Rfam assigns this 86-nucleotide RNA from Drosophila grimshawi to the family "mir-7 microRNA precursor family".
RNA sequence: AAUGCAUUCCGUAUGGAAGACUAGUGAUUUUGUUGUUUGGUCUUUGUUAAUAACAAUAAAUCCCUUGUCUCCUAACGGCGCGCAUU
Numbered sequence: 001a002a003u004g005c006a007u008u009c010c011g012u013a014u015g016g017a018a019g020a021c022u023a024g025u026g027a028u029u030u031u032g033u034u035g036u037u038u039g040g041u042c043u044u045u046g047u048u049a050a051u052a053a054c055a056a057u058a059a060a061u062c063c064c065u066u067g068u069c070u071c072c073u074a075a076c077g078g079c080g081c082g083c084a085u086u
Stems, first nucleotide, its partner, number of pairs: 001086005007080001009078004015072002018070004024064001026062005032057006

The literature on the family includes a 2001 paper in Science by Lagos-Quintana et al., "Identification of novel genes coding for small expressed RNAs". It is one of the family's seed sequences. Rfam describes the family as follows. This family represents the microRNA (miRNA) precursor mir-7.